[Rfam]
RNA sequence: CGUACACGCUAGGGGUGCUGACGGUCUGCAAAGACCAACGGCUGAGAUAACACCCUGGAACUUGAUCAAGGUAAUACUUGCGCAGGGAAGCGUCGCUCCAACACC
Numbered sequence: 001c002g003u004a005c006a007c008g009c010u011a012g013g014g015g016u017g018c019u020g021a022c023g024g025u026c027u028g029c030a031a032a033g034a035c036c037a038a039c040g041g042c043u044g045a046g047a048u049a050a051c052a053c054c055c056u057g058g059a060a061c062u063u064g065a066u067c068a069a070g071g072u073a074a075u076a077c078u079u080g081c082g083c084a085g086g087g088a089a090g091c092g093u094c095g096c097u098c099c100a101a102c103a104c105c
Stems, first nucleotide, its partner, number of pairs: 006093005011056004016050001017042004061086004067080004